A member of the RNA family "Plastid-ccsA-ndhD-2 3UTR RNA", 59 nucleotides long. The sequence is in the family's curated seed alignment.

Nucleotides: 059
Stems, first nucleotide, its partner, number of pairs: 007054019
Number, partner (000 for none) and nucleotide at each position: 001000g002000u003000u004000u005000u006000u007054u008053u009052g010051a011050g012049a013048a014047c015046c016045a017044u018043a019042u020041g021040a022039a023038u024037c025036a026000c027000g028000u029000a030000g031000u032000c033000u034000a035000a036025u037024g038023a039022u040021u041020c042019a043018u044017a045016u046015g047014g048013u049012u050011u051010u052009c053008g054007g055000c056000g057000g058000a059000u
About the family: Plastid ccsA-ndhD-2 is a non-coding RNA (ncRNA) recognised in plastids. It was found in the three prime untranslated region (3UTR) of ccsA and ndhD genes, its 3UTR location suggests a role in transcript maturation. By type it is a cis-regulatory element.